Overview:
Rfam assigns this 335-nucleotide part of an RNA from Paranucleospora theridion to the family "Microsporidia small subunit ribosomal RNA". Rfam links the family to the GO terms structural constituent of ribosome and ribosome. It is one of the family's seed sequences. The literature on the family includes a 2002 paper in BMC Bioinformatics by Cannone et al., "The comparative RNA web (CRW) site: an online database of comparative sequence and structure information for ribosomal, intron, and other RNAs".
[Rfam]
RNA sequence: CAGUUAAAAAGUCCGUAGUCGUUGAUGCAAUUAAAAGGUGUAGAUCAAGUGCACCAAGUUUGUUAGUUGUGGCGGAGCGGACAGGGAGCAUGGUAUAGGUUGGCGAAGAAUGAAAUCUCAAGACCCAACCUGGACCAACUGAGGCGAAAGCGGUGCUCUUGUACGCGUCUGUGGAUCAAGGACGAAGGCUAGAGGAUCGAAAGUGAUUAGACACCGCUGUAGUUCUAGCAGUAAACUAUGCCGACAUUCUCUGUUGUUGAGACGGGGAGGGGAGAAAUCUUAGUUUUCGGGCUCUGGGGAUAGUACGCUUGCAAGAGUGAAACUUAAAGCGAAAU
Numbered sequence: 001c002a003g004u005u006a007a008a009a010a011g012u013c014c015g016u017a018g019u020c021g022u023u024g025a026u027g028c029a030a031u032u033a034a035a036a037g038g039u040g041u042a043g044a045u046c047a048a049g050u051g052c053a054c055c056a057a058g059u060u061u062g063u064u065a066g067u068u069g070u071g072g073c074g075g076a077g078c079g080g081a082c083a084g085g086g087a088g089c090a091u092g093g094u095a096u097a098g099g100u101u102g103g104c105g106a107a108g109a110a111u112g113a114a115a116u117c118u119c120a121a122g123a124c125c126c127a128a129c130c131u132g133g134a135c136c137a138a139c140u141g142a143g144g145c146g147a148a149a150g151c152g153g154u155g156c157u158c159u160u161g162u163a164c165g166c167g168u169c170u171g172u173g174g175a176u177c178a179a180g181g182a183c184g185a186a187g188g189c190u191a192g193a194g195g196a197u198c199g200a201a202a203g204u205g206a207u208u209a210g211a212c213a214c215c216g217c218u219g220u221a222g223u224u225c226u227a228g229c230a231g232u233a234a235a236c237u238a239u240g241c242c243g244a245c246a247u248u249c250u251c252u253g254u255u256g257u258u259g260a261g262a263c264g265g266g267g268a269g270g271g272g273a274g275a276a277a278u279c280u281u282a283g284u285u286u287u288c289g290g291g292c293u294c295u296g297g298g299g300a301u302a303g304u305a306c307g308c309u310u311g312c313a314a315g316a317g318u319g320a321a322a323c324u325u326a327a328a329g330c331g332a333a334a335u
Stems, first nucleotide, its partner, number of pairs: 001296003011183004018176003074170003077166003081162002085159007092136002096132008107118003144151002188229006198222001202218004240292003243285003247269009272279002298325002307318004
The family is grouped with related families in Rfam's "SSU clan". Taxonomically the source falls in Paranucleospora (Eukaryota, Opisthokonta, Fungi, Apansporoblastina).